This 270-nucleotide RNA sequence from Pseudoneobacillus rhizosphaerae belongs to the Rfam family "BsrG". Pairs were carried over by alignment from the consensus structure, which was predicted with WAR. Lineage of the source: Bacteria > Bacillota > Bacilli > Caryophanales > Pseudoneobacillus. Gene Ontology terms of the family: toxin activity and autolysis. It is annotated as a small RNA. Rfam describes the family as follows. bsrE, bsrG and bsrH pair through intermolecular interactions with antisense sRNAs. They form type I toxin/antitoxin system that includes an mRNA encoding for a short, toxic peptide (bsrE, bsrG and bsrH) and an antitoxin that is comprised of an antisense RNA. bsrG encodes a 39-amino-acid toxin, and the 180 nucleotide antisense sRNA called SR4 acts as the antitoxin (they overlap by 123 nucleotides). SR4 interaction with the 3'UTR of bsrG RNA promotes bsrG degradation and inhibits its translation.
[Rfam]
RNA sequence: CAACUACAUAUCCAGGGUGGCGGCUGACACUCCCUAUGAAAGGGGGUGUCAGUUAUGACGACAUACGAAGUACUCUCAAUUGUAUUUGCAGCUCUUACAUUUGAAGCAGUAUUUAUAUCAGCUAUUGUUGCUAUUGUCGUCGCUAUAACAAAAAAGAAAUAGCCACCCUGCCGGCCAAGCAACGGUGACUAUUUCUACCUAAUUUUAACGGUUAGCCGCUUCAUCCUGCGGCAUGUGUGUUGUAAUGAUCAGGUGUGUCGAGCACCUGAU
Numbered sequence: 001c002a003a004c005u006a007c008a009u010a011u012c013c014a015g016g017g018u019g020g021c022g023g024c025u026g027a028c029a030c031u032c033c034c035u036a037u038g039a040a041a042g043g044g045g046g047u048g049u050c051a052g053u054u055a056u057g058a059c060g061a062c063a064u065a066c067g068a069a070g071u072a073c074u075c076u077c078a079a080u081u082g083u084a085u086u087u088g089c090a091g092c093u094c095u096u097a098c099a100u101u102u103g104a105a106g107c108a109g110u111a112u113u114u115a116u117a118u119c120a121g122c123u124a125u126u127g128u129u130g131c132u133a134u135u136g137u138c139g140u141c142g143c144u145a146u147a148a149c150a151a152a153a154a155a156g157a158a159a160u161a162g163c164c165a166c167c168c169u170g171c172c173g174g175c176c177a178a179g180c181a182a183c184g185g186u187g188a189c190u191a192u193u194u195c196u197a198c199c200u201a202a203u204u205u206u207a208a209c210g211g212u213u214a215g216c217c218g219c220u221u222c223a224u225c226c227u228g229c230g231g232c233a234u235g236u237g238u239g240u241u242g243u244a245a246u247g248a249u250c251a252g253g254u255g256u257g258u259c260g261a262g263c264a265c266c267u268g269a270u
Stems, first nucleotide, its partner, number of pairs: 001242004005237003009233001011215001013170006022164004027049003031045005057141007070085003182200001216231004248270009